[Rfam]
RNA: Glycine riboswitch aptamer
RNA sequence: UGAAUCCGCGCGGGAGAGUCCCCGGCCGCGCCGGGGCGCCGAAGGAGCAAGUCCCUCCCUUGAAUCUCUCAGGCACCGUUACCGCGCGGGCGAG
Numbered sequence: 001u002g003a004a005u006c007c008g009c010g011c012g013g014g015a016g017a018g019u020c021c022c023c024g025g026c027c028g029c030g031c032c033g034g035g036g037c038g039c040c041g042a043a044g045g046a047g048c049a050a051g052u053c054c055c056u057c058c059c060u061u062g063a064a065u066c067u068c069u070c071a072g073g074c075a076c077c078g079u080u081a082c083c084g085c086g087c088g089g090g091c092g093a094g
Stems, first nucleotide, its partner, number of pairs: 006089008020036004038074003041070002045068003051061001